DUF3800-VIII RNA: a 63-nucleotide sequence. Bacteroidetes, Cyanobacteria, Firmicutes, Planctomycetes (1 example), Proteobacteria, Tenericutes (1 example). The family's RNA type in Rfam is small RNA.

RNA sequence: AUUGCCCUGCUUCCCGCGAAGGCCCAAGUACCACUUGGGAGUUUGUAGCGGUGGCGGGGUAGC
Numbered sequence: 001a002u003u004g005c006c007c008u009g010c011u012u013c014c015c016g017c018g019a020a021g022g023c024c025c026a027a028g029u030a031c032c033a034c035u036u037g038g039g040a041g042u043u044u045g046u047a048g049c050g051g052u053g054g055c056g057g058g059g060u061a062g063c
Stems, first nucleotide, its partner, number of pairs: 002062010013051001015050003023039007